[Rfam]
RNA sequence: UGGCACAAACCCGUAGAUCCGAUCUUGUGGAAAAUCUGACCGCACAAGCUCGCCUCUGUGGGUCUCUGUCAG
Numbered sequence: 001u002g003g004c005a006c007a008a009a010c011c012c013g014u015a016g017a018u019c020c021g022a023u024c025u026u027g028u029g030g031a032a033a034a035u036c037u038g039a040c041c042g043c044a045c046a047a048g049c050u051c052g053c054c055u056c057u058g059u060g061g062g063u064c065u066c067u068g069u070c071a072g
Stems, first nucleotide, its partner, number of pairs: 002070004007065001010062003015057003020052003024048006
The family of this 72-nucleotide sequence from Oryzias sinensis is "mir-10 microRNA precursor family". Rfam links the family to the GO terms miRNA-mediated post-transcriptional gene silencing and RISC complex. Rfam 15.1 lists 3,853 matches to the family in 853 species. The base pairs follow the family's consensus structure, which was predicted with PFOLD. The organism belongs to Oryzias, within Eukaryota.